[Rfam]
RNA sequence: GGGGAUCGGGUCUUCUGAGUCUGCAGUACUCAGGCUAUGUGUGCCUCUGCAGCAGGUGCAGGCCCAGCAAUUCUC
Numbered sequence: 001g002g003g004g005a006u007c008g009g010g011u012c013u014u015c016u017g018a019g020u021c022u023g024c025a026g027u028a029c030u031c032a033g034g035c036u037a038u039g040u041g042u043g044c045c046u047c048u049g050c051a052g053c054a055g056g057u058g059c060a061g062g063c064c065c066a067g068c069a070a071u072u073c074u075c
Base pairs, nucleotide, nucleotide: 001075002074003073004072005071006070008065009064010063011062012061015033016032017031018030019029020028042058043057044056045055046054
Rfam assigns this 75-nucleotide sequence from Oncorhynchus kisutch to the family "bZIP non canonical Hac1/Xbp1 intron". The family's consensus secondary structure was predicted with RNAfold. Rfam 15.1 lists 1,325 matches to the family in 1,320 species. A reference for the family is Iracane et al. (2018), "Identification of an Exceptionally Long Intron in the HAC1 Gene of Candida parapsilosis", mSphere. NCBI's taxonomy places the organism under Eukaryota, Bilateria, Gnathostomata, Salmoniformes, Oncorhynchus. bZIP intron RNA is a non-canonical intron that was first reported in HAC1 gene in yeast and XBP1 gene in Metazoa. It scores 49 bits against the family's covariance model.